[Rfam]
RNA sequence: AUUGACCAAGGGAAUGUUUUACUCGCGAAUUUUUCAGCGAGAGACGGAAUGGAUGCUCGCUAGCUUUCCUCAAAGUUAGCUCAUAAAAGACAACUACAAGGAUUGA
Numbered sequence: 001a002u003u004g005a006c007c008a009a010g011g012g013a014a015u016g017u018u019u020u021a022c023u024c025g026c027g028a029a030u031u032u033u034u035c036a037g038c039g040a041g042a043g044a045c046g047g048a049a050u051g052g053a054u055g056c057u058c059g060c061u062a063g064c065u066u067u068c069c070u071c072a073a074a075g076u077u078a079g080c081u082c083a084u085a086a087a088a089g090a091c092a093a094c095u096a097c098a099a100g101g102a103u104u105g106a
Stems, first nucleotide, its partner, number of pairs: 022041005059080007